Small Cajal body specific RNA 6: a 262-nucleotide RNA from Fregetta grallaria. The organism belongs to Fregetta, within Eukaryota.
RNA sequence: GGUCUGCGAUGAAUAGUAAAAGGUCUGAUUAUCCUAAGACUUGCAGUUCCAUGACCUUUUCUCCCAGCAGUUUCUUACAAGUCAUGACACAGUAAUGUGUGGCUGGCAGAGUGUUUGCUGACAGCUUGUGAUGUGUUCAGUUCAUGUUAACCUGAAGUAUCAGAGACAUGACUGGGAUCAGCAUCUAACAGUCUUACUUGAAGAAGUUUGGGGUCUUGGAUUAUUAUAACUGGACGUGUGAUCUGACUUUUCUGCUGAGACC
Numbered sequence: 001g002g003u004c005u006g007c008g009a010u011g012a013a014u015a016g017u018a019a020a021a022g023g024u025c026u027g028a029u030u031a032u033c034c035u036a037a038g039a040c041u042u043g044c045a046g047u048u049c050c051a052u053g054a055c056c057u058u059u060u061c062u063c064c065c066a067g068c069a070g071u072u073u074c075u076u077a078c079a080a081g082u083c084a085u086g087a088c089a090c091a092g093u094a095a096u097g098u099g100u101g102g103c104u105g106g107c108a109g110a111g112u113g114u115u116u117g118c119u120g121a122c123a124g125c126u127u128g129u130g131a132u133g134u135g136u137u138c139a140g141u142u143c144a145u146g147u148u149a150a151c152c153u154g155a156a157g158u159a160u161c162a163g164a165g166a167c168a169u170g171a172c173u174g175g176g177a178u179c180a181g182c183a184u185c186u187a188a189c190a191g192u193c194u195u196a197c198u199u200g201a202a203g204a205a206g207u208u209u210g211g212g213g214u215c216u217u218g219g220a221u222u223a224u225u226a227u228a229a230c231u232g233g234a235c236g237u238g239u240g241a242u243c244u245g246a247c248u249u250u251u252c253u254g255c256u257g258a259g260a261c262c
Stems, first nucleotide, its partner, number of pairs: 001262004037244003041240001048220004053215002061206002064203001065120006078106001080104007128186001130185005143170006152163003
The family's RNA type in Rfam is small Cajal body RNA. A reference for the family is Huttenhofer et al. (2001), "RNomics: an experimental approach that identifies 201 candidates for novel, small, non-messenger RNAs in mouse", EMBO J.